[Rfam]
RNA sequence: CGCCCUCGUGCGGGAGAGUUUCGUGACAGCCAGCCACGGACGCCGAAGGAGCAAUACCCUCUCCGUCAACCUCUCAGGCACCCAGGACCGCGCCAGGCCC
Dot-bracket structure: .....(.((((((......((((((.........)))))).(((((..(((....((.......))....))))).)))........)))))).).....
Numbered sequence: 001c002g003c004c005c006u007c008g009u010g011c012g013g014g015a016g017a018g019u020u021u022c023g024u025g026a027c028a029g030c031c032a033g034c035c036a037c038g039g040a041c042g043c044c045g046a047a048g049g050a051g052c053a054a055u056a057c058c059c060u061c062u063c064c065g066u067c068a069a070c071c072u073c074u075c076a077g078g079c080a081c082c083c084a085g086g087a088c089c090g091c092g093c094c095a096g097g098c099c100c
Stems, first nucleotide, its partner, number of pairs: 006095001008093006020040006042079003045075002049073003056066002
A member of the RNA family "Glycine riboswitch aptamer" from Mycolicibacterium fortuitum, 100 nucleotides long. The source organism's lineage runs through Bacteria, Bacillati, Actinomycetota, Mycobacteriales and Mycobacterium (subgen. Mycolicibacterium).